[Rfam]
Rfam assigns this 82-nucleotide sequence from Sinocyclocheilus anshuiensis to the family "mir-128 microRNA precursor family". Gene Ontology terms of the family: miRNA-mediated post-transcriptional gene silencing and RISC complex. Pairs were carried over by alignment from the consensus structure, which was predicted with RNAalifold. The organism belongs to Sinocyclocheilus, within Eukaryota.

RNA sequence: CGCAUCUUGUCAGCAAGGCCGUGUCACUGUAUGAGAUUCGUAGUCAUUCUCACAGUGAACCGGUCUCUUUUCCCAGCCCUCA
Numbered sequence: 001c002g003c004a005u006c007u008u009g010u011c012a013g014c015a016a017g018g019c020c021g022u023g024u025c026a027c028u029g030u031a032u033g034a035g036a037u038u039c040g041u042a043g044u045c046a047u048u049c050u051c052a053c054a055g056u057g058a059a060c061c062g063g064u065c066u067c068u069u070u071u072c073c074c075a076g077c078c079c080u081c082a
Stems, first nucleotide, its partner, number of pairs: 006076002009073001016066006025057006033051003